Shown here is an 87-nucleotide RNA from Paenibacillus flagellatus, a member of the family "c-di-GMP-I riboswitch aptamer".
RNA sequence: AUUCCGAAGCGGCAAACUUGCCGAAAGGCAGGGACGCAAAGCCACAGGUCUAAGGUUCGGACGAACUAUGACAGCUGGGUUGCCGAC
Numbered sequence: 001a002u003u004c005c006g007a008a009g010c011g012g013c014a015a016a017c018u019u020g021c022c023g024a025a026a027g028g029c030a031g032g033g034a035c036g037c038a039a040a041g042c043c044a045c046a047g048g049u050c051u052a053a054g055g056u057u058c059g060g061a062c063g064a065a066c067u068a069u070g071a072c073a074g075c076u077g078g079g080u081u082g083c084c085g086a087c
Base pairs, nucleotide, nucleotide: 012037013036017032018031019030020029021028022027040081041080042079043078045077046076047075048072049071050070055066056065057064058063
Taxonomically the source falls in Paenibacillus (Bacteria, Bacillati, Bacillota, Paenibacillaceae).